[Rfam]
The family of this 69-nucleotide sequence is "ASpks TB sRNA". The base pairs follow the family's consensus structure, which is taken from published work. A search with the family's covariance model found it, with a score of 62 bits.

RNA sequence: CUUCACGGAGCCGAGCCACAGGGGUUCGGUACGGUCCUGCCCGUAGGUGGCCAUGAGGGCCUGGGCCUC
Numbered sequence: 001c002u003u004c005a006c007g008g009a010g011c012c013g014a015g016c017c018a019c020a021g022g023g024g025u026u027c028g029g030u031a032c033g034g035u036c037c038u039g040c041c042c043g044u045a046g047g048u049g050g051c052c053a054u055g056a057g058g059g060c061c062u063g064g065g066c067c068u069c
Base pairs, nucleotide, nucleotide: 014026015025016024017023027063032059038053039052041050042049043048
Dot-bracket structure: .............((((.....))))(....(.....((.(((....))).)).....)...)......